[Rfam]
RNA sequence: UUCUUAUCGAGAAAGGUGGAGGGACUGGCCCUUUGAAGCCUUAGCAGCAGACUCCUGACGGGUACUGUGCUAAUUCCAGAAGCGUACGUGCUUGCAGAUGAGAA
Numbered sequence: 001u002u003c004u005u006a007u008c009g010a011g012a013a014a015g016g017u018g019g020a021g022g023g024a025c026u027g028g029c030c031c032u033u034u035g036a037a038g039c040c041u042u043a044g045c046a047g048c049a050g051a052c053u054c055c056u057g058a059c060g061g062g063u064a065c066u067g068u069g070c071u072a073a074u075u076c077c078a079g080a081a082g083c084g085u086a087c088g089u090g091c092u093u094g095c096a097g098a099u100g101a102g103a104a
Stems, first nucleotide, its partner, number of pairs: 001104008013042005021031003025079004043071004048067002050063001052061002075096001080093005
RNA: SAM riboswitch aptamer (S box leader)
Organism: Halobacillus sp. BAB-2008